This 126-nucleotide sequence from Himantopus himantopus belongs to the Rfam family "U11 spliceosomal RNA". The family has 72 seed sequences and 2,595 matches in Rfam 15.1.
[Rfam]
RNA sequence: AAAAAGGGCUUCUGCCGUGCGUGGCACGGGGGGGCCACGCGGCCGCCCUCGCGGAAUCGACAUCAAGAGAUUUCGGAAGCACAAUUUUUGCAAUGGGUUUUAUUUACCAGCAAUGUGCCCUUGCUG
Numbered sequence: 001a002a003a004a005a006g007g008g009c010u011u012c013u014g015c016c017g018u019g020c021g022u023g024g025c026a027c028g029g030g031g032g033g034g035c036c037a038c039g040c041g042g043c044c045g046c047c048c049u050c051g052c053g054g055a056a057u058c059g060a061c062a063u064c065a066a067g068a069g070a071u072u073u074c075g076g077a078a079g080c081a082c083a084a085u086u087u088u089u090g091c092a093a094u095g096g097g098u099u100u101u102a103u104u105u106a107c108c109a110g111c112a113a114u115g116u117g118c119c120c121u122u123g124c125u126g
Stems, first nucleotide, its partner, number of pairs: 008080005013026005027051006034044001035042002052075007090124004095120004101115004
Lineage of the source: Eukaryota > Chordata > Theropoda > Neoaves > Himantopus. The base pairs follow the family's consensus structure, which is taken from published work.